[Rfam]
RNA sequence: CUGGCGGGGAAACCGUUACCAUUACUGUGUUUAGUAAUGGUAAGGGUUCUCCCGCUGCGCUG
Numbered sequence: 001c002u003g004g005c006g007g008g009g010a011a012a013c014c015g016u017u018a019c020c021a022u023u024a025c026u027g028u029g030u031u032u033a034g035u036a037a038u039g040g041u042a043a044g045g046g047u048u049c050u051c052c053c054g055c056u057g058c059g060c061u062g
Base pairs, nucleotide, nucleotide: 002057003056005054006053007052011048012047013046014045016043017042018041019040020039021038022037023036024035025034026033027032
This 62-nucleotide sequence from Monodelphis domestica belongs to the Rfam family "mir-451 microRNA precursor family". The literature on the family includes a 2008 paper in Biochem Biophys Res Commun by Gal et al., "MIR-451 and Imatinib mesylate inhibit tumor growth of Glioblastoma stem cells". The base pairs follow the family's consensus structure, which was predicted with RNAalifold. The family has 22 seed sequences and 658 matches in Rfam 15.1. Rfam's curators put it in the seed alignment.